This 72-nucleotide RNA from Pseudolycoriella hygida belongs to the Rfam family "Small nucleolar RNA SNORD18". The literature on the family includes a 1993 paper in Nucleic Acids Res by Prislei et al., "Two different snoRNAs are encoded in introns of amphibian and human L1 ribosomal protein genes". Its Rfam clan is "SNORD18 clan". Rfam 15.1 lists 2,622 matches to the family in 960 species. By type it is a C/D-box small nucleolar RNA. Pairs were carried over by alignment from the consensus structure, which was predicted with PFOLD.

RNA sequence: AUUUUAUGAUGAAAAACAUUGGUCCGUGUUGAUGAUAUCCUUUGAUUAUUACACCCAACCACAACUGAAAAU
Dot-bracket structure: ((((................................................................))))